[Rfam]
RNA sequence: UCGUCCUGCUCGUGAUCGUCUUCUCACCCUUCACGUGGCAGGCGCGAAAAGGCCCCGCGCGGUGGCUCGCGCGGGGCCUUU
Numbered sequence: 001u002c003g004u005c006c007u008g009c010u011c012g013u014g015a016u017c018g019u020c021u022u023c024u025c026a027c028c029c030u031u032c033a034c035g036u037g038g039c040a041g042g043c044g045c046g047a048a049a050a051g052g053c054c055c056c057g058c059g060c061g062g063u064g065g066c067u068c069g070c071g072c073g074g075g076g077c078c079u080u081u
Stems, first nucleotide, its partner, number of pairs: 002044002005042006012034004018028001048081014
RNA: sodF sRNA
Organism: Streptomyces sp. SAJ15